[Rfam]
RNA: Ribosomal protein L10 leader
Organism: Granulicatella elegans
RNA sequence: UUUUCUAGUUGAAUGCGACCGAAGACAGUAGGGGGCGUUAGCCUUAAUAUCCUACCGAGGGAGAACAAGUUGAUCUUAUUUCUCUAUGUCUUUGUGGGCAUAGAGUUUUUUUAUGCCCUA
Numbered sequence: 001u002u003u004u005c006u007a008g009u010u011g012a013a014u015g016c017g018a019c020c021g022a023a024g025a026c027a028g029u030a031g032g033g034g035g036c037g038u039u040a041g042c043c044u045u046a047a048u049a050u051c052c053u054a055c056c057g058a059g060g061g062a063g064a065a066c067a068a069g070u071u072g073a074u075c076u077u078a079u080u081u082c083u084c085u086a087u088g089u090c091u092u093u094g095u096g097g098g099c100a101u102a103g104a105g106u107u108u109u110u111u112u113a114u115g116c117c118c119u120a
Base pairs, nucleotide, nucleotide: 028055029054030053031052032051033050034043035042036041082105083104084103085102086101087100088099089098090097